[Rfam]
RNA sequence: CCUAUUCAAUUUCAAAUGACUCGUAUAAUUCUUGGGGAUAUGGCCCAUAAGUUUCUACCAGAUGACCGAUCAUCUUAUCUGACUACGAGUGAAAGUGCAUCUAGG
Numbered sequence: 001c002c003u004a005u006u007c008a009a010u011u012u013c014a015a016a017u018g019a020c021u022c023g024u025a026u027a028a029u030u031c032u033u034g035g036g037g038a039u040a041u042g043g044c045c046c047a048u049a050a051g052u053u054u055c056u057a058c059c060a061g062a063u064g065a066c067c068g069a070u071c072a073u074c075u076u077a078u079c080u081g082a083c084u085a086c087g088a089g090u091g092a093a094a095g096u097g098c099a100u101c102u103a104g105g
Stems, first nucleotide, its partner, number of pairs: 019090007029050002033047004059081007
The family of this 105-nucleotide sequence from Brevibacillus laterosporus is "Purine riboswitch aptamer".